Source information:
U7 small nuclear RNA: a 66-nucleotide RNA from Chlorocebus sabaeus. The base pairs follow the family's consensus structure, which was predicted with PFOLD.
[Rfam]
RNA sequence: CAGUGUUAACAGCUCUUUUAGAAUUUGUUUAGGAGGUUUUCUGGUUUUCACUGGAACUUCUCCCCA
Dot-bracket structure: ..................................((..(((((((....))))))).....))...

The source organism's lineage runs through Eukaryota, Bilateria, Chordata, Vertebrata and Chlorocebus.